Record summary:
The record is a 103-nucleotide sequence from Brassica carinata, which matches "Plant small nucleolar RNA R71" in Rfam. Rfam classes the family as a C/D-box small nucleolar RNA. Rfam links the family to the GO terms nucleolus and RNA processing. A reference for the family is Brown et al. (2003), "Plant snoRNAs: functional evolution and new modes of gene expression", Trends Plant Sci. The base pairs follow the family's consensus structure, which was predicted with PFOLD.
RNA sequence: AAACCAUGGUGUGGGCAUUGAGCUUGGUAGCCCUUGAAUCUCUCGGGCUUCACCGAAGCCUUCCAAGUUCUUCUAUUGGAACCGAGAUCUCAUUUCUCAGCUU
Dot-bracket structure: (..(.(................................................((.(..........).))........................)..)..)